The record is a 405-nucleotide RNA sequence from Bordetella avium, which matches "Bacterial RNase P class A" in Rfam. By type it is a ribozyme. The family's consensus secondary structure is taken from published work. Rfam links the family to the GO terms ribonuclease P activity, tRNA processing and dimeric ribonuclease P complex. Ribonuclease P (RNase P) is a ubiquitous endoribonuclease, found in archaea, bacteria and eukarya as well as chloroplasts and mitochondria. Taxonomically the source falls in Bordetella avium (Bacteria, Pseudomonadota, Burkholderiales, Bordetella).
RNA sequence: AAGGCAGAUUGGGCAGUCGCGAUGGUUAGACCAUCGAGGAAGGUCCGGACUCCAUAGGGCAGGAUAGCGGCUAACGGCCGUCCGGUAAGAUGCGCAAGCAUCGAGCCGAGGAACAGGGCCACAGAGACGAGUCUGCGGGGCGGGCGCCUUCAGGGGCGCACCGGCACGGCCAUCUCCGUGCUGCGGCAACUGGUGACAGUUGCCGGCAUCGCAGGGUGAAACGCGGCAACCUCUAUCCGGAGCAACAUCAAAUAGGCAUGCGCACAGCCUUCGGGCUGGAAAGGGCGGCUCGUUCGAGCAUGCGGGUAGGUGGCUAGAGCGUGUCAGCAAUGGCUCGCGUAGAGGAAUGAUUGCCAGUCGGGGAAACCCGGCGUACAGAAUCCGGCCUAUAGAUCUGCUUUGCAC
Numbered sequence: 001a002a003g004g005c006a007g008a009u010u011g012g013g014c015a016g017u018c019g020c021g022a023u024g025g026u027u028a029g030a031c032c033a034u035c036g037a038g039g040a041a042g043g044u045c046c047g048g049a050c051u052c053c054a055u056a057g058g059g060c061a062g063g064a065u066a067g068c069g070g071c072u073a074a075c076g077g078c079c080g081u082c083c084g085g086u087a088a089g090a091u092g093c094g095c096a097a098g099c100a101u102c103g104a105g106c107c108g109a110g111g112a113a114c115a116g117g118g119c120c121a122c123a124g125a126g127a128c129g130a131g132u133c134u135g136c137g138g139g140g141c142g143g144g145c146g147c148c149u150u151c152a153g154g155g156g157c158g159c160a161c162c163g164g165c166a167c168g169g170c171c172a173u174c175u176c177c178g179u180g181c182u183g184c185g186g187c188a189a190c191u192g193g194u195g196a197c198a199g200u201u202g203c204c205g206g207c208a209u210c211g212c213a214g215g216g217u218g219a220a221a222c223g224c225g226g227c228a229a230c231c232u233c234u235a236u237c238c239g240g241a242g243c244a245a246c247a248u249c250a251a252a253u254a255g256g257c258a259u260g261c262g263c264a265c266a267g268c269c270u271u272c273g274g275g276c277u278g279g280a281a282a283g284g285g286c287g288g289c290u291c292g293u294u295c296g297a298g299c300a301u302g303c304g305g306g307u308a309g310g311u312g313g314c315u316a317g318a319g320c321g322u323g324u325c326a327g328c329a330a331u332g333g334c335u336c337g338c339g340u341a342g343a344g345g346a347a348u349g350a351u352u353g354c355c356a357g358u359c360g361g362g363g364a365a366a367c368c369c370g371g372c373g374u375a376c377a378g379a380a381u382c383c384g385g386c387c388u389a390u391a392g393a394u395c396u397g398c399u400u401u402g403c404a405c
Base pairs, nucleotide, nucleotide: 001401002400003399004398005397006396007395008394009393010392011390012355013354014353015352016351017350018349020036021035022034023033024032025031026030041388042387043386045385046384047383048382049381050242051241052240053239057291058290059289060288062238063237064236065235066234067081068080069079070078071077082110083108084107085106086105111233112232116231117230118227119226120225133155134154135151137150138149139148140147141146163182164181165180166179167178168177184206185204186203187202188201189200190199191198192197246312247311248310249309256303257302258301259300260299261298283295284294285293286292319338320337321336323334324333325332326331